[Rfam]
This 173-nucleotide sequence belongs to the Rfam family "malK-I RNA". Rfam classes the family as a cis-regulatory element. It is one of the family's seed sequences. Pairs were carried over by alignment from the consensus structure, which is taken from published work.
RNA sequence: UCCAACCCCCGCGUCUUACUCCACCUAUGUAAUCCACGGGGGAAAUAAAGAAGGAGGAAAGUUUUUCCGCCUGACCGGCGGUGCGGCAGUGUGGAGACCUGUCGUAAGGCAGCGUGGCGGCUGCGAGGCUCCGUUUCGCGGAGGCGGCGGGGCUACGGUCAAGCAUUAUGGCA
Numbered sequence: 001u002c003c004a005a006c007c008c009c010c011g012c013g014u015c016u017u018a019c020u021c022c023a024c025c026u027a028u029g030u031a032a033u034c035c036a037c038g039g040g041g042g043a044a045a046u047a048a049a050g051a052a053g054g055a056g057g058a059a060a061g062u063u064u065u066u067c068c069g070c071c072u073g074a075c076c077g078g079c080g081g082u083g084c085g086g087c088a089g090u091g092u093g094g095a096g097a098c099c100u101g102u103c104g105u106a107a108g109g110c111a112g113c114g115u116g117g118c119g120g121c122u123g124c125g126a127g128g129c130u131c132c133g134u135u136u137c138g139c140g141g142a143g144g145c146g147g148c149g150g151g152g153c154u155a156c157g158g159u160c161a162a163g164c165a166u167u168a169u170g171g172c173a
Stems, first nucleotide, its partner, number of pairs: 006042006013035001016032003067081004072161006082106008091098002109124005127154007137146003